[Rfam]
RNA: Small nucleolar RNA U3
RNA sequence: AAGACUAUACUUCCAGGGAUUGUUUCUAUAGUUUGUUACUAAAGAAGUUUCUCUGAAUGUGUAGAGCACCAGAAACCAUGAGAAGGAGGCACAGCACUGUUUCCUAAGCAUGAAGCUGGCUCUUAGUGUUGCUUCAUUGCAACUCCAAAUUGCCAUUUAUGUUCAUUCUUCUCUUUCUUCAGGAGAGUAAGAGGGAGAGAAUUCAGUUUGAGUGGU
Numbered sequence: 001a002a003g004a005c006u007a008u009a010c011u012u013c014c015a016g017g018g019a020u021u022g023u024u025u026c027u028a029u030a031g032u033u034u035g036u037u038a039c040u041a042a043a044g045a046a047g048u049u050u051c052u053c054u055g056a057a058u059g060u061g062u063a064g065a066g067c068a069c070c071a072g073a074a075a076c077c078a079u080g081a082g083a084a085g086g087a088g089g090c091a092c093a094g095c096a097c098u099g100u101u102u103c104c105u106a107a108g109c110a111u112g113a114a115g116c117u118g119g120c121u122c123u124u125a126g127u128g129u130u131g132c133u134u135c136a137u138u139g140c141a142a143c144u145c146c147a148a149a150u151u152g153c154c155a156u157u158u159a160u161g162u163u164c165a166u167u168c169u170u171c172u173c174u175u176u177c178u179u180c181a182g183g184a185g186a187g188u189a190a191g192a193g194g195g196a197g198a199g200a201a202u203u204c205a206g207u208u209u210g211a212g213u214g215g216u
Base pairs, nucleotide, nucleotide: 002040003039006035007034009032010031011030015027016026017025018024049065050064054061075216076215077214078213079212094204096202098200100198101197102196103195104194105193108166118154119153120152124148126146128143129142130141131140132139169190170189171187172186173185174184175183176182